[Rfam]
RNA sequence: GCCUUGUGCCUGAAAGGGCGACGGCGCUGAGCCGGAGCGAGAAGUCAGCAGAGGCCGUAGUAGCUGCCUGCUUGGGGCGAAGGGC
Numbered sequence: 001g002c003c004u005u006g007u008g009c010c011u012g013a014a015a016g017g018g019c020g021a022c023g024g025c026g027c028u029g030a031g032c033c034g035g036a037g038c039g040a041g042a043a044g045u046c047a048g049c050a051g052a053g054g055c056c057g058u059a060g061u062a063g064c065u066g067c068c069u070g071c072u073u074g075g076g077g078c079g080a081a082g083g084g085c
Base pairs, nucleotide, nucleotide: 001025002024004023007020008019009018010017011016045052046051054085055084056083063078064077065076067074
The family of this 85-nucleotide sequence from Pseudothauera lacus is "Group II catalytic intron D1-D4-1".